Description: This 88-nucleotide sequence belongs to the Rfam family "SAM-I/IV (S-adenosyl methionine) riboswitch aptamer".
[Rfam]
RNA sequence: UAAUUGCAUAAAGAGAGGGAAACCUCAGCAACCUAGUUGCCAACUAAGGUGCUUUUUGAUGUGGUUAAAUAACAAAAAAUGGCUUCUU
Numbered sequence: 001u002a003a004u005u006g007c008a009u010a011a012a013g014a015g016a017g018g019g020a021a022a023c024c025u026c027a028g029c030a031a032c033c034u035a036g037u038u039g040c041c042a043a044c045u046a047a048g049g050u051g052c053u054u055u056u057u058g059a060u061g062u063g064g065u066u067a068a069a070u071a072a073c074a075a076a077a078a079a080u081g082g083c084u085u086c087u088u
Base pairs, nucleotide, nucleotide: 006062007061008060009059015026016025017024018023027053028052029051032049033048034047035045036044037043039085064073065072066071